[Rfam]
RNA sequence: UUUGAUUCGUACACUUAGUUUUGUACAACAUUUUUAGUGUACAAAUAAAUAAAUGUACACAGCGUACACUUACAUCUGUACACUAAAAGUGUUGUACAAAUUUAAGUGUACGAAUCAAA
Numbered sequence: 001u002u003u004g005a006u007u008c009g010u011a012c013a014c015u016u017a018g019u020u021u022u023g024u025a026c027a028a029c030a031u032u033u034u035u036a037g038u039g040u041a042c043a044a045a046u047a048a049a050u051a052a053a054u055g056u057a058c059a060c061a062g063c064g065u066a067c068a069c070u071u072a073c074a075u076c077u078g079u080a081c082a083c084u085a086a087a088a089g090u091g092u093u094g095u096a097c098a099a100a101u102u103u104a105a106g107u108g109u110a111c112g113a114a115u116c117a118a119a
Stems, first nucleotide, its partner, number of pairs: 001119018020100024045075002050072003055067004
The record is a 119-nucleotide RNA sequence from Arabidopsis thaliana, which matches "mir-5014 microRNA precursor family" in Rfam. The sequence is in the family's curated seed alignment. NCBI's taxonomy places the organism under Eukaryota, Streptophytina, Mesangiospermae, Pentapetalae, Arabidopsis. The base pairs follow the family's consensus structure, which was predicted with RNAalifold.